[Rfam]
RNA sequence: AUGAGGUUCGAAUGCGCCUGACGGUUUUUGUCCGACGUGGUGUGGGAAACGCCUCAAAGAAGU
Numbered sequence: 001a002u003g004a005g006g007u008u009c010g011a012a013u014g015c016g017c018c019u020g021a022c023g024g025u026u027u028u029u030g031u032c033c034g035a036c037g038u039g040g041u042g043u044g045g046g047a048a049a050c051g052c053c054u055c056a057a058a059g060a061a062g063u
Base pairs, nucleotide, nucleotide: 002056003055004054005053006052007051014043015042016041017040018039019037020036022034023033024032